[Rfam]
RNA: Plastid-ccsA-ndhD-1 3UTR RNA
Organism: Ancistrocladus tectorius
RNA sequence: UAAACAGACGAGAACCAUUUAAAUCAAGUAAAAUAGUAAUUUGAUUCAAAUGGUUCUCACAAAGG
Numbered sequence: 001u002a003a004a005c006a007g008a009c010g011a012g013a014a015c016c017a018u019u020u021a022a023a024u025c026a027a028g029u030a031a032a033a034u035a036g037u038a039a040u041u042u043g044a045u046u047c048a049a050a051u052g053g054u055u056c057u058c059a060c061a062a063a064g065g
Base pairs, nucleotide, nucleotide: 010058011057012056013055014054015053016052017051018050019049020048022046023045024044025043026042027041028040